RNA: mir-8517 microRNA precursor family
Organism: Plutella xylostella
RNA sequence: UUAGUGGAGGUUAUAGCUAUUAAACUGUUUUGUCCCUCUCUGUCAAAGAACACAUUUUUCUCUGUCAGAGAGUGACAGAACAGUUCAAUAGCUAAAGCAUCCAGUAAC
Numbered sequence: 001u002u003a004g005u006g007g008a009g010g011u012u013a014u015a016g017c018u019a020u021u022a023a024a025c026u027g028u029u030u031u032g033u034c035c036c037u038c039u040c041u042g043u044c045a046a047a048g049a050a051c052a053c054a055u056u057u058u059u060c061u062c063u064g065u066c067a068g069a070g071a072g073u074g075a076c077a078g079a080a081c082a083g084u085u086c087a088a089u090a091g092c093u094a095a096a097g098c099a100u101c102c103a104g105u106a107a108c
Base pairs, nucleotide, nucleotide: 001107002106003105005103006102011097012096014094015093016092017091018090019089020088021087023085024084025083026082027081028080029069030068031067032066034064049059050058052056